[Rfam]
RNA sequence: GACCGUCGCACAUGCGGGAAAUCAUGUGCAUGUCCCUGCCUCAACUGGCCCCGGUUUCGACCGGGGCCCUUUUU
Numbered sequence: 001g002a003c004c005g006u007c008g009c010a011c012a013u014g015c016g017g018g019a020a021a022u023c024a025u026g027u028g029c030a031u032g033u034c035c036c037u038g039c040c041u042c043a044a045c046u047g048g049c050c051c052c053g054g055u056u057u058c059g060a061c062c063g064g065g066g067c068c069c070u071u072u073u074u
Stems, first nucleotide, its partner, number of pairs: 008029007047068008
Singlet oxygen resistance RNA X: a 74-nucleotide sequence from Roseovarius spongiae. The literature on the family includes a 2016 paper in RNA Biol by Peng et al., "Regulation of a polyamine transporter by the conserved 3' UTR-derived sRNA SorX confers resistance to singlet oxygen and organic hydroperoxides in Rhodobacter sphaeroides". By type it is a small RNA. Pairs were carried over by alignment from the consensus structure. SorX (RSs2461)like SorY is a singlet oxygen induced sRNA that counteracts oxidative stress by targeting mRNA for a transporter in Rhodobacter. Gene Ontology term of the family: response to photooxidative stress.